[Rfam]
Shown here is a 323-nucleotide RNA sequence from Antarcticibacterium flavum, a member of the family "Bacterial RNase P class A".
RNA sequence: GAAGCAGGCCGCCUUAUCGCUACCCCGAAUUAAAGCGGGAUAGAGGAAAGUCUGGACACCAUAGGGCAGCAUAGUGGGUAACGCCCACCGGUCGUGAGGCCAGGACUAGUGCAACAGAAAGGAUGUACAGGUAAUGCUGUAGUGAAAUCAUGUAAACUCUAUGCGGUGCAAUGCCAUGUAUACCGGCAUUUAAGGGUAGCCCGCCCGUUGCUGGAGGGUAGGCAGCUAAAGGUCUUUGGUAACAAAUGAUCUGAGAUAAAUGAUAAGGUAUUUUUGAAGCAAUUCAAAAAUAACAGAAUCCGGAUUACAGGCCUGCUUUUUUA
Dot-bracket structure: ((((((((((((((((((.(((.((((........)))).)))....[[..[[[[[((((...[[[[.((((((((((.....)))))(((((....)))).)((...(((((.....................................)))..)))))))))))))...((((.......(((((......((((.]]]]))))...)))))......))))......((((((((....)))).))))..........)))))))..............................]]]]].]].).))))))))))....
A search with the family's covariance model found it, with a score of 214 bits. The family's RNA type in Rfam is ribozyme. From the family's description: Ribonuclease P (RNase P) is a ubiquitous endoribonuclease, found in archaea, bacteria and eukarya as well as chloroplasts and mitochondria.